[Rfam]
Overview: A member of the RNA family "7SK RNA" from Octodon degus, 300 nucleotides long. The family's RNA type in Rfam is non-coding RNA gene. 7SK was discovered as an abundant small nuclear RNA in the mid-70s but a possible function has only recently been suggested. Two independent studies have found that 7SK RNA binds the CDK9/cyclin T complex (known as elongation factor P-TEFb). P-TEFb activates transcription by phosphorylating the C-terminal domain of RNA polymerase II. This process is negatively regulated by the 7SK RNP. The secondary structure of 7SK RNA shown here was proposed by Wasserman and Steitz on the basis of chemical modification and enzymatic cleavage experiments. The family is grouped with related families in Rfam's "7SK clan". The match comes from Rfam's covariance-model search (263 bits).
RNA sequence: GGAUGUGAGGGUGAUCUGGCUGCGACAUCUGUCACCCCAUUGAUCGCCAGGGUUGAUUCAGCUGAUCUGGCUGGCUAGGCAGGUGUCCCCUUCCUCCCUCAAUGAUCCAUGUGCGUCCCUCCUGAAGCUGUGCGCUCGGUUGAAGAGGAUGACCACCCCCGAUAGAGGAGGACCGUUCCUUGGUCAAGGGUAUACGAGUAGCUGCGCUCCCCUGCUAGAACCUCCAAACAAGCUCUCAAGGAUGGUUUAUCAAAGCUCAUGUAAGCCAUGUUUUCCCUGGAAUCUCCAGUGGUACAGCAU
Number, nucleotide and partner (000 for none) at each position: 001g108002g107003a106004u000005g000006u101007g100008a099009g098010g097011g096012u000013g093014a092015u000016c000017u000018g090019g089020c000021u000022g000023c000024g087025a086026c085027a084028u083029c082030u081031g080032u079033c078034a000035c074036c073037c070038c069039a068040u000041u000042g067043a066044u065045c064046g062047c061048c000049a000050g000051g000052g000053u000054u000055g000056a000057u000058u000059c000060a000061g047062c046063u000064g045065a044066u043067c042068u039069g038070g037071c000072u000073g036074g035075c000076u000077a000078g033079g032080c031081a030082g029083g028084u027085g026086u025087c024088c000089c019090c018091u000092u014093c013094c000095u000096c011097c010098c009099u008100c007101a006102a000103u000104g000105a000106u003107c002108c001109a000110u000111g000112u000113g000114c000115g000116u171117c170118c168119c167120u166121c165122c139123u138124g137125a136126a000127g135128c134129u000130g000131u000132g000133c000134g128135c127136u125137c124138g123139g122140u162141u161142g160143a000144a000145g000146a000147g158148g157149a000150u000151g000152a000153c000154c000155a000156c000157c148158c147159c000160c142161g141162a140163u000164a000165g121166a120167g119168g118169a000170g117171g116172a000173c000174c000175g000176u000177u000178c000179c000180u000181u000182g000183g000184u000185c000186a000187a000188g000189g000190g000191u000192a000193u000194a000195c000196g000197a000198g000199u000200a000201g266202c265203u264204g000205c000206g000207c000208u259209c000210c000211c000212c000213u000214g000215c000216u000217a000218g000219a000220a000221c000222c255223u254224c000225c000226a000227a000228a250229c000230a248231a247232g246233c000234u000235c000236u000237c000238a000239a000240g000241g000242a000243u000244g000245g000246u232247u231248u230249a000250u228251c000252a000253a000254a223255g222256c000257u000258c000259a208260u000261g000262u000263a000264a203265g202266c201267c000268a000269u000270g000271u000272u000273u000274u000275c000276c000277c000278u000279g000280g000281a000282a000283u000284c000285u000286c000287c000288a000289g000290u000291g000292g000293u000294a000295c000296a000297g000298c000299a000300u000